[Rfam]
RNA sequence: CAGGGCUGGGGGAGGGCUGCUGGGCUUUGGGGCCAGCAGGUCCCUUCUCAUACCAGCCAGCCUGGCCCUGUGCCCGAGAUCAGCUCCCAGGCGGGCUCCCUGCGGGGUCCCUCCUGUGCAGUAACAGGUGUGAGCAUCCAUGCAGCUUUCUGAUGGUCAUGUAUGAUACUGCAAACAAGA
Numbered sequence: 001c002a003g004g005g006c007u008g009g010g011g012g013a014g015g016g017c018u019g020c021u022g023g024g025c026u027u028u029g030g031g032g033c034c035a036g037c038a039g040g041u042c043c044c045u046u047c048u049c050a051u052a053c054c055a056g057c058c059a060g061c062c063u064g065g066c067c068c069u070g071u072g073c074c075c076g077a078g079a080u081c082a083g084c085u086c087c088c089a090g091g092c093g094g095g096c097u098c099c100c101u102g103c104g105g106g107g108u109c110c111c112u113c114c115u116g117u118g119c120a121g122u123a124a125c126a127g128g129u130g131u132g133a134g135c136a137u138c139c140a141u142g143c144a145g146c147u148u149u150c151u152g153a154u155g156g157u158c159a160u161g162u163a164u165g166a167u168a169c170u171g172c173a174a175a176c177a178a179g180a
Base pairs, nucleotide, nucleotide: 003075004074005073006072008068009067010066015062016061017060018059019057020056021055022054024053029044030043032041033040034039087107088106091103092102093101094100115175117173118172119171120170121169122168123167125165126164131159132158133157135155136154137153138152142149
Shown here is a 180-nucleotide sequence from Melopsittacus undulatus, a member of the family "Small Cajal body specific RNA 16". Pairs were carried over by alignment from the consensus structure, which was predicted with RNAfold. For this family Rfam cites "Cajal body-specific small nuclear RNAs: a novel class of 2'-O-methylation and pseudouridylation guide RNAs" (Darzacq et al., EMBO J, 2002). Lineage of the source: Eukaryota > Chordata > Euteleostomi > Psittaciformes > Melopsittacus. The family's RNA type in Rfam is small Cajal body RNA. scaRNAs are a specific class of small nuclear RNAs which localise to the Cajal bodies and guide the modification of RNA polymerase II transcribed spliceosomal RNAs U1, U2, U4, U5 and U12.